[Rfam]
Shown here is a 74-nucleotide sequence from Amazona aestiva, a member of the family "mir-1744 microRNA precursor family". Pairs were carried over by alignment from the consensus structure, which was predicted with RNAalifold. The family has 2 seed sequences and 249 matches in Rfam 15.1. The match comes from Rfam's covariance-model search (73 bits). Rfam links the family to the GO terms miRNA-mediated post-transcriptional gene silencing and RISC complex.
RNA sequence: GGGACCCAGUACUCCUCCAUUGAACUCAAAAAGCAGAACCUGUGUUGACUUCAAGAGGAGCAAGACUGAGCCCU
Numbered sequence: 001g002g003g004a005c006c007c008a009g010u011a012c013u014c015c016u017c018c019a020u021u022g023a024a025c026u027c028a029a030a031a032a033g034c035a036g037a038a039c040c041u042g043u044g045u046u047g048a049c050u051u052c053a054a055g056a057g058g059a060g061c062a063a064g065a066c067u068g069a070g071c072c073c074u
Stems, first nucleotide, its partner, number of pairs: 002072002005070001007068004013062001015060003020054005026048004032043001034042001